[Rfam]
RNA sequence: CCCCUGGUCCGGGCCCCUCUGGCGGAAGCAGCCGGCGCUCUCGCGAUGUCGGACCGUGUUC
Numbered sequence: 001c002c003c004c005u006g007g008u009c010c011g012g013g014c015c016c017c018u019c020u021g022g023c024g025g026a027a028g029c030a031g032c033c034g035g036c037g038c039u040c041u042c043g044c045g046a047u048g049u050c051g052g053a054c055c056g057u058g059u060u061c
Stems, first nucleotide, its partner, number of pairs: 006055007022044004027039003
This 61-nucleotide RNA from Enterovirga aerilata belongs to the Rfam family "terC RNA". It scores 56 bits against the family's covariance model. Rfam 15.1 lists 1,112 matches to the family in 772 species. Lineage of the source: Bacteria > Pseudomonadati > Alphaproteobacteria > Hyphomicrobiales > Enterovirga. The family's consensus secondary structure is taken from published work.